RNA: Small Cajal body specific RNA 6
Organism: Pampusana beccarii
RNA sequence: GGUCUGUGAUGAACAGUAAAAGGUCUGAUUUCCCUAAGACUUGCACUUCCAUGACCUUUUCUCCCAGCGGUUUCUCACCAGUCACAGCAGAGCAAUGGUGUGGCUGGCAGAGUGUUUGCUGACAGCUUGUGAUGUGCUCGGGACAUGUCAGCCUCAAGUGUCGGAGAUGUGACUGGGCUCAGCAUCCAACAGCCCAACCUGAAGGAGUCUGGGGUCUUGGGCAGUUAUAACGGGACACGUGAUCUGACUUUUCUGCUGAGACC
Numbered sequence: 001g002g003u004c005u006g007u008g009a010u011g012a013a014c015a016g017u018a019a020a021a022g023g024u025c026u027g028a029u030u031u032c033c034c035u036a037a038g039a040c041u042u043g044c045a046c047u048u049c050c051a052u053g054a055c056c057u058u059u060u061c062u063c064c065c066a067g068c069g070g071u072u073u074c075u076c077a078c079c080a081g082u083c084a085c086a087g088c089a090g091a092g093c094a095a096u097g098g099u100g101u102g103g104c105u106g107g108c109a110g111a112g113u114g115u116u117u118g119c120u121g122a123c124a125g126c127u128u129g130u131g132a133u134g135u136g137c138u139c140g141g142g143a144c145a146u147g148u149c150a151g152c153c154u155c156a157a158g159u160g161u162c163g164g165a166g167a168u169g170u171g172a173c174u175g176g177g178c179u180c181a182g183c184a185u186c187c188a189a190c191a192g193c194c195c196a197a198c199c200u201g202a203a204g205g206a207g208u209c210u211g212g213g214g215u216c217u218u219g220g221g222c223a224g225u226u227a228u229a230a231c232g233g234g235a236c237a238c239g240u241g242a243u244c245u246g247a248c249u250u251u252u253c254u255g256c257u258g259a260g261a262c263c
Stems, first nucleotide, its partner, number of pairs: 001263004037245003041241001048221004053216002061207004065121006078107009129187001131186005148171001152166001154164002